Rfam assigns this 85-nucleotide sequence from Anaerosporomusa subterranea to the family "c-di-GMP-I riboswitch aptamer".
The family's consensus secondary structure is taken from published work.
[Rfam]
RNA sequence: UACAUACUUGGGCAAACUUACCGAAAGGUAAGGACGCAAAGCCAUGGGUCUACGGACAAGUGUCUACGACUGCCAGGUUGCUGAU
Numbered sequence: 001u002a003c004a005u006a007c008u009u010g011g012g013c014a015a016a017c018u019u020a021c022c023g024a025a026a027g028g029u030a031a032g033g034a035c036g037c038a039a040a041g042c043c044a045u046g047g048g049u050c051u052a053c054g055g056a057c058a059a060g061u062g063u064c065u066a067c068g069a070c071u072g073c074c075a076g077g078u079u080g081c082u083g084a085u
Stems, first nucleotide, its partner, number of pairs: 012037002017032006040079004045075003048070003055064003